RNA sequence: UUUUUUUGAAACUAACAUCAUUUUCGUCUUAGUAAAGAUAAACUUACCAGUGUAAGUAUAGUCUUCUUUUGUGCGAAUUAGUGGCUCAUAAACUAAUUCCUCUACUCCAAAAGAUUCUAUCGUUUGCACGCCGUCCACAUUAAAAGUGUUCCCGCUUUAGAAA
Numbered sequence: 001u002u003u004u005u006u007u008g009a010a011a012c013u014a015a016c017a018u019c020a021u022u023u024u025c026g027u028c029u030u031a032g033u034a035a036a037g038a039u040a041a042a043c044u045u046a047c048c049a050g051u052g053u054a055a056g057u058a059u060a061g062u063c064u065u066c067u068u069u070u071g072u073g074c075g076a077a078u079u080a081g082u083g084g085c086u087c088a089u090a091a092a093c094u095a096a097u098u099c100c101u102c103u104a105c106u107c108c109a110a111a112a113g114a115u116u117c118u119a120u121c122g123u124u125u126g127c128a129c130g131c132c133g134u135c136c137a138c139a140u141u142a143a144a145a146g147u148g149u150u151c152c153c154g155c156u157u158u159a160g161a162a163a
Base pairs, nucleotide, nucleotide: 005077006076007075008074010072011033012032013031014030015029019026034069035068036067037066038065045058046057047056115162116161117160118159119158122155123154126149127148128147129146
RNA: Listeria sRNA rli49